[Rfam]
RNA sequence: CAAUAACGAAAGGAGGUGAUCCAGUGUCUCAUUGUCAUACCCUACGUUCCCCGGUUGCCGCGACCUGGAUCUUGGCCUCUGCCGAGAUUUGUGCGUAACGCACCUUUAAGGGCGGCUCUUCGGGGCCGUGGAACCGACAAUGGAAAGGCCGUCCCCCGGGACGGCCUU
Number, nucleotide and partner (000 for none) at each position: 001c000002a000003a000004u000005a000006a000007c000008g000009a000010a000011a000012g000013g000014a000015g022016g021017u000018g000019a000020u000021c016022c015023a000024g000025u000026g000027u000028c000029u000030c142031a141032u140033u139034g138035u137036c136037a000038u000039a000040c000041c000042c000043u074044a073045c000046g071047u000048u069049c068050c067051c000052c000053g000054g000055u000056u000057g000058c000059c000060g000061c000062g000063a000064c000065c000066u000067g050068g049069a048070u000071c046072u000073u044074g043075g080076c000077c000078u000079c000080u075081g000082c111083c110084g107085a000086g000087a000088u000089u000090u000091g103092u102093g101094c100095g000096u000097a000098a000099c000100g094101c093102a092103c091104c000105u000106u000107u084108a000109a000110g083111g082112g000113c000114g000115g000116c000117u132118c131119u130120u000121c128122g000123g000124g000125g000126c000127c000128g121129u000130g119131g118132a117133a000134c000135c000136g036137a035138c034139a033140a032141u031142g030143g000144a000145a168146a167147g166148g165149c164150c163151g162152u161153c160154c159155c000156c000157c000158g000159g154160g153161a152162c151163g150164g149165c148166c147167u146168u145
Notes
A member of the RNA family "caulobacter sRNA CC2171" from Microvirga aerilata, 168 nucleotides long. Lineage of the source: Bacteria > Alphaproteobacteria > Hyphomicrobiales > Methylobacteriaceae > Microvirga. The literature on the family includes a 2008 paper in Mol Microbiol by Landt et al., "Small non-coding RNAs in Caulobacter crescentus".